RNA sequence: CCCUUUGCAACAGGCGCGCCACUGCCCUAUAUAUAAAUUGUCUCUCGGGACUAUGGAUAUAAACGCACUUGCAAUAAGCGGAUCGGACCCGGGGGCGGUACCCGGCGUCUCCACCAUCACGCCCUUUACUGGGAUGGCUCAUUUGGCCGAUAUGGGGACGAAAUAGGAUCGACGAACGUCUAAAGAGGUUAGCUUUAUCUCGGUGAGUUACCACCGUUAUCGGUACAUCAAAGCUAGUUGCAAAUGACAACAAUGCUCAGGUAGCACUCGCAGCGUAAGCUGUGCGUAAUACCGAAACUUAGUCCUUGCGCCUAGCAGCGUAAGGCGGGGCCCGCCGGAGCCUGGCAACAGAAUCCGGCAGC
Numbered sequence: 001c002c003c004u005u006u007g008c009a010a011c012a013g014g015c016g017c018g019c020c021a022c023u024g025c026c027c028u029a030u031a032u033a034u035a036a037a038u039u040g041u042c043u044c045u046c047g048g049g050a051c052u053a054u055g056g057a058u059a060u061a062a063a064c065g066c067a068c069u070u071g072c073a074a075u076a077a078g079c080g081g082a083u084c085g086g087a088c089c090c091g092g093g094g095g096c097g098g099u100a101c102c103c104g105g106c107g108u109c110u111c112c113a114c115c116a117u118c119a120c121g122c123c124c125u126u127u128a129c130u131g132g133g134a135u136g137g138c139u140c141a142u143u144u145g146g147c148c149g150a151u152a153u154g155g156g157g158a159c160g161a162a163a164u165a166g167g168a169u170c171g172a173c174g175a176a177c178g179u180c181u182a183a184a185g186a187g188g189u190u191a192g193c194u195u196u197a198u199c200u201c202g203g204u205g206a207g208u209u210a211c212c213a214c215c216g217u218u219a220u221c222g223g224u225a226c227a228u229c230a231a232a233g234c235u236a237g238u239u240g241c242a243a244a245u246g247a248c249a250a251c252a253a254u255g256c257u258c259a260g261g262u263a264g265c266a267c268u269c270g271c272a273g274c275g276u277a278a279g280c281u282g283u284g285c286g287u288a289a290u291a292c293c294g295a296a297a298c299u300u301a302g303u304c305c306u307u308g309c310g311c312c313u314a315g316c317a318g319c320g321u322a323a324g325g326c327g328g329g330g331c332c333c334g335c336c337g338g339a340g341c342c343u344g345g346c347a348a349c350a351g352a353a354u355c356c357g358g359c360a361g362c
Base pairs, nucleotide, nucleotide: 040051041050042049043048055200056199057198058197059196065193066192067189068188069187070186079178080177083175084174085173089105090104091103092102093101106160107159108158109157110156111155112154201216202215203214204213207226208225210224211223212222328343329342330341331340334359335358336357337356338355339354

Annotation:
Alphaproteobacteria transfer-messenger RNA: a 362-nucleotide RNA from Octadecabacter arcticus. About the family: Bacterial tmRNA, also known as 10Sa RNA or SsrA, is named for its dual tRNA and mRNA-like properties. A search with the family's covariance model found it, with a score of 279 bits. The family's consensus secondary structure is taken from published work.